[Rfam]
RNA: U11 spliceosomal RNA
Organism: Erinaceus europaeus
RNA sequence: AAAAAGGGCUUCUGUUGUGUGUGACACACGUAGGGCAGCGCGUUUGCUCUACGUGUGGAAUCGACAUCAAGAGAUUUCAGAAGCAUGUUUUUUGUGGAUUGGGCAGCUGGUGAUUGUUGGUCCUGGCACCCUA
Numbered sequence: 001a002a003a004a005a006g007g008g009c010u011u012c013u014g015u016u017g018u019g020u021g022u023g024a025c026a027c028a029c030g031u032a033g034g035g036c037a038g039c040g041c042g043u044u045u046g047c048u049c050u051a052c053g054u055g056u057g058g059a060a061u062c063g064a065c066a067u068c069a070a071g072a073g074a075u076u077u078c079a080g081a082a083g084c085a086u087g088u089u090u091u092u093u094g095u096g097g098a099u100u101g102g103g104c105a106g107c108u109g110g111u112g113a114u115u116g117u118u119g120g121u122c123c124u125g126g127c128a129c130c131c132u133a
Base pairs, nucleotide, nucleotide: 008084009083010082011081012080013026014025015024016023017022027055028054029053030052031051032050033049034048035047036046037045038044056079057078058077059076060075061074062073101131102130103129106127107126108125109124110123112122113121114120115119